RNA sequence: CCCGCGGCAAGACGGAAAGACCCCGUGAACCUUUACUACAGCUUUGCACUGGACUUUGAGCAUGCCUGUGUAGGAUAGGUGGGAGGCUGUGAAGCCGGGACGCCAGUUCCGGUGGAGCCGUCCUUGAAAUACCACCCUGGUAUGCUUGAGGUUCUAACCUGGGCCCGUGAUCCGGGUCGGGGACAGUGCAUGGUGGGUAGUUUGACUGGGGCGGUCUCCUCCCAAAGAGUAACGGAGGAGCGCAAAGGUACCCUCAGCACGGUCGGAAAUCGUGCGUUGAGUGCAAGGGCAGAAGGGUGCUUGACUGCGAGACAGACACGUCGAGCAGGGGCGAAAGCCGGCCCUAGUGAUCCGGUGGUUCUGCAUGGAAGGGCCAUCGCUCAACGGAUAAAAGGUACUCCGGGGAUAACAGGCUGAUCCCGCCCAAGAGUCCACAUCGACGGCGGGGUUUGGCACCUCGAUGUCGGCUCAUCUCAUCCUGGGGCUGUAGCCGGUCCCAAGGGUAUGGCUGUUCGCCAUUUAAAGAGGUACGCGAGCUGGGUUUAGAACGUCGUGAGACAGUUCGGUCCCUAUCUGCCGUGGGCGUU
Numbered sequence: 001c002c003c004g005c006g007g008c009a010a011g012a013c014g015g016a017a018a019g020a021c022c023c024c025g026u027g028a029a030c031c032u033u034u035a036c037u038a039c040a041g042c043u044u045u046g047c048a049c050u051g052g053a054c055u056u057u058g059a060g061c062a063u064g065c066c067u068g069u070g071u072a073g074g075a076u077a078g079g080u081g082g083g084a085g086g087c088u089g090u091g092a093a094g095c096c097g098g099g100a101c102g103c104c105a106g107u108u109c110c111g112g113u114g115g116a117g118c119c120g121u122c123c124u125u126g127a128a129a130u131a132c133c134a135c136c137c138u139g140g141u142a143u144g145c146u147u148g149a150g151g152u153u154c155u156a157a158c159c160u161g162g163g164c165c166c167g168u169g170a171u172c173c174g175g176g177u178c179g180g181g182g183a184c185a186g187u188g189c190a191u192g193g194u195g196g197g198u199a200g201u202u203u204g205a206c207u208g209g210g211g212c213g214g215u216c217u218c219c220u221c222c223c224a225a226a227g228a229g230u231a232a233c234g235g236a237g238g239a240g241c242g243c244a245a246a247g248g249u250a251c252c253c254u255c256a257g258c259a260c261g262g263u264c265g266g267a268a269a270u271c272g273u274g275c276g277u278u279g280a281g282u283g284c285a286a287g288g289g290c291a292g293a294a295g296g297g298u299g300c301u302u303g304a305c306u307g308c309g310a311g312a313c314a315g316a317c318a319c320g321u322c323g324a325g326c327a328g329g330g331g332c333g334a335a336a337g338c339c340g341g342c343c344c345u346a347g348u349g350a351u352c353c354g355g356u357g358g359u360u361c362u363g364c365a366u367g368g369a370a371g372g373g374c375c376a377u378c379g380c381u382c383a384a385c386g387g388a389u390a391a392a393a394g395g396u397a398c399u400c401c402g403g404g405g406a407u408a409a410c411a412g413g414c415u416g417a418u419c420c421c422g423c424c425c426a427a428g429a430g431u432c433c434a435c436a437u438c439g440a441c442g443g444c445g446g447g448g449u450u451u452g453g454c455a456c457c458u459c460g461a462u463g464u465c466g467g468c469u470c471a472u473c474u475c476a477u478c479c480u481g482g483g484g485c486u487g488u489a490g491c492c493g494g495u496c497c498c499a500a501g502g503g504u505a506u507g508g509c510u511g512u513u514c515g516c517c518a519u520u521u522a523a524a525g526a527g528g529u530a531c532g533c534g535a536g537c538u539g540g541g542u543u544u545a546g547a548a549c550g551u552c553g554u555g556a557g558a559c560a561g562u563u564c565g566g567u568c569c570c571u572a573u574c575u576g577c578c579g580u581g582g583g584c585g586u587u
Stems, first nucleotide, its partner, number of pairs: 001583008010575003014570002022404004027400002029396005035201004042193002045190004051154016068137001078136005085119003094113008158181003162178006204216004217239006240385001242342002248300006254280002257275006281290002305328004311322003330339003353379007361372002413454003417451001418448007428438002465540001466538004470532001471529005478503002481498006505519005546564004550559003